[Rfam]
RNA sequence: GCCUCUCGGCGUGCACUGAGUGUCCUUAUGUACAAUUAUAUACGAAAUAAGGCACGCGGUGAAUGCCAAGAGCG
Numbered sequence: 001g002c003c004u005c006u007c008g009g010c011g012u013g014c015a016c017u018g019a020g021u022g023u024c025c026u027u028a029u030g031u032a033c034a035a036u037u038a039u040a041u042a043c044g045a046a047a048u049a050a051g052g053c054a055c056g057c058g059g060u061g062a063a064u065g066c067c068a069a070g071a072g073c074g
Stems, first nucleotide, its partner, number of pairs: 003072004009066004014061003020057003024052006031045001
Shown here is a 74-nucleotide RNA from Tropilaelaps mercedesae, a member of the family "mir-124 microRNA precursor family".
Taxonomically the source falls in Tropilaelaps (Eukaryota, Metazoa, Chelicerata, Mesostigmata).
The literature on the family includes a 2003 paper in Genome Biol by Lai et al., "Computational identification of Drosophila microRNA genes".
Rfam 15.1 lists 2,215 matches to the family in 905 species.
The base pairs follow the family's consensus structure, which was predicted with PFOLD.